[Rfam]
RNA sequence: CAGGGAUUCCGGGUCCGCACCCGGAAUGGCUCUUCCGGCCGCCUAUCCGCCGGACAACC
Numbered sequence: 001c002a003g004g005g006a007u008u009c010c011g012g013g014u015c016c017g018c019a020c021c022c023g024g025a026a027u028g029g030c031u032c033u034u035c036c037g038g039c040c041g042c043c044u045a046u047c048c049g050c051c052g053g054a055c056a057a058c059c
Stems, first nucleotide, its partner, number of pairs: 006027002009024004014019001034054006
RNA: sul1 RNA